Notes
M-box riboswitch aptamer (ykoK leader): a 155-nucleotide sequence from Streptococcus australis. Pairs were carried over by alignment from the consensus structure. From the family's description: M-box riboswitch, also know as ykoK leader is described as a metaloregulatory RNA that sense divalent metals and function as a genetic control element of genes related to divalent metal transport in bacteria. It was first reported upstream of the B.subtilis ykoK gene and genes with related functions in other bacteria. The match comes from Rfam's covariance-model search (87 bits). NCBI's taxonomy places the organism under Bacteria, Bacillati, Bacillota, Streptococcus, Streptococcus australis. Gene Ontology terms of the family: response to magnesium ion and regulation of gene expression.

RNA sequence: GGGGAAUAACGGUAGGUGAGGCUACCACAAGGAUACGGAUGACUACCGCAAAGCAGUGGAGACACUACUCGUUGGUCAACAGUCCUGAUCGCAAAGGUCAAGACUAAGCUCAUUUCAUUGCCUUGCGGAGCUAAAGCUUGGACGGUCUAUUUUUU
Numbered sequence: 001g002g003g004g005a006a007u008a009a010c011g012g013u014a015g016g017u018g019a020g021g022c023u024a025c026c027a028c029a030a031g032g033a034u035a036c037g038g039a040u041g042a043c044u045a046c047c048g049c050a051a052a053g054c055a056g057u058g059g060a061g062a063c064a065c066u067a068c069u070c071g072u073u074g075g076u077c078a079a080c081a082g083u084c085c086u087g088a089u090c091g092c093a094a095a096g097g098u099c100a101a102g103a104c105u106a107a108g109c110u111c112a113u114u115u116c117a118u119u120g121c122c123u124u125g126c127g128g129a130g131c132u133a134a135a136g137c138u139u140g141g142a143c144g145g146u147c148u149a150u151u152u153u154u155u
Stems, first nucleotide, its partner, number of pairs: 005153002008150001011143001013095001015138003020132003025128002028125005039113004046074001048072002055066004082104003088098003